[Rfam]
RNA sequence: UAUAGUGAUGAAUAUAAUCACAAUUGUCACUACCUCUGAGGCACAUUCUCUUUUCGUUUUGUAUCUGAUUUAUUAGGCCUAGUAAUUGCAUCUAAGAACGGAGAUAUGAAG
Numbered sequence: 001u002a003u004a005g006u007g008a009u010g011a012a013u014a015u016a017a018u019c020a021c022a023a024u025u026g027u028c029a030c031u032a033c034c035u036c037u038g039a040g041g042c043a044c045a046u047u048c049u050c051u052u053u054u055c056g057u058u059u060u061g062u063a064u065c066u067g068a069u070u071u072a073u074u075a076g077g078c079c080u081a082g083u084a085a086u087u088g089c090a091u092c093u094a095a096g097a098a099c100g101g102a103g104a105u106a107u108g109a110a111g
Base pairs, nucleotide, nucleotide: 004031005030006029007028008027009026085105086104087103
Shown here is a 111-nucleotide sequence from Raphanus sativus, a member of the family "Small nucleolar RNA snoR17". For this family Rfam cites "Multiple snoRNA gene clusters from Arabidopsis" (Brown et al., RNA, 2001). The source organism's lineage runs through Eukaryota, Gunneridae, Brassicales, Brassiceae and Raphanus. Pairs were carried over by alignment from the consensus structure, which was predicted with CMfinder. It is annotated as a C/D-box small nucleolar RNA.